The record is a 55-nucleotide RNA sequence, which matches "Glutamine riboswitch aptamer (glnA leader)" in Rfam.
Its family is annotated with glutamine binding in the Gene Ontology.
For this family Rfam cites "Bacterial aptamers that selectively bind glutamine" (Ames and Breaker, RNA Biol, 2011).
Rfam's curators put it in the seed alignment.

RNA sequence: AUCGUUCAACUCAUAGUGAGUCGGAAGUAAGUACGUUGUACUGAAGGAACGCAUG
Numbered sequence: 001a002u003c004g005u006u007c008a009a010c011u012c013a014u015a016g017u018g019a020g021u022c023g024g025a026a027g028u029a030a031g032u033a034c035g036u037u038g039u040a041c042u043g044a045a046g047g048a049a050c051g052c053a054u055g
Base pairs, nucleotide, nucleotide: 003051004050005049006048007047009021010020011019012018024052030042031041032040033039034038